[Rfam]
RNA sequence: AUGACCUUUAAAUUUAGUCCCGUGAGGCUAAGAAGGCAGCUCAAAAUCCAUAUAUAAACAAGAAAUUCUUGGCAAACAUUCGAAUUGACAGGAAGACCGGGGAGGAAGCUUUUCGGACAGUUUAAGCAGACUUUGAGAGACCAUUUUAGACACGGAGACUGAGUGUAUAAAAUGGUCUUUUUGCU
Numbered sequence: 001a002u003g004a005c006c007u008u009u010a011a012a013u014u015u016a017g018u019c020c021c022g023u024g025a026g027g028c029u030a031a032g033a034a035g036g037c038a039g040c041u042c043a044a045a046a047u048c049c050a051u052a053u054a055u056a057a058a059c060a061a062g063a064a065a066u067u068c069u070u071g072g073c074a075a076a077c078a079u080u081c082g083a084a085u086u087g088a089c090a091g092g093a094a095g096a097c098c099g100g101g102g103a104g105g106a107a108g109c110u111u112u113u114c115g116g117a118c119a120g121u122u123u124a125a126g127c128a129g130a131c132u133u134u135g136a137g138a139g140a141c142c143a144u145u146u147u148a149g150a151c152a153c154g155g156a157g158a159c160u161g162a163g164u165g166u167a168u169a170a171a172a173u174g175g176u177c178u179u180u181u182u183g184c185u
Stems, first nucleotide, its partner, number of pairs: 005036005014031006062098001066094006073087003136180013

Record summary:
The record is a 185-nucleotide RNA from Lactobacillus leichmannii, which matches "PyrR binding site" in Rfam. Gene Ontology terms of the family: pyrimidine nucleobase transport and pyrimidine nucleobase biosynthetic process. Rfam describes the family as follows. This family represents the PyrR binding site and terminator structure. This RNA structure is found upstream of a variety of genes involved in pyrimidine biosynthesis and transport. The family's consensus secondary structure is taken from published work.